A member of the RNA family "MIR403 microRNA precursor family" from Carya illinoinensis, 92 nucleotides long. Gene Ontology terms of the family: miRNA-mediated post-transcriptional gene silencing and RISC complex. The organism belongs to Carya, within Eukaryota.
RNA sequence: UCAUAUUUCAGGUUUGUGCGUGAAUCUAAUGGCGCCCCAUAACAUCUCUCUGUGGAUGGUGUUAGAUUCACGCACAAACUCGUAAUGUGCCU
Numbered sequence: 001u002c003a004u005a006u007u008u009c010a011g012g013u014u015u016g017u018g019c020g021u022g023a024a025u026c027u028a029a030u031g032g033c034g035c036c037c038c039a040u041a042a043c044a045u046c047u048c049u050c051u052g053u054g055g056a057u058g059g060u061g062u063u064a065g066a067u068u069c070a071c072g073c074a075c076a077a078a079c080u081c082g083u084a085a086u087g088u089g090c091c092u
Base pairs, nucleotide, nucleotide: 002089003088005086006085007084011080012079013078014077015076016075017074018073019072020071021070022069023068024067025066026065028063029062030061037059038058039057040056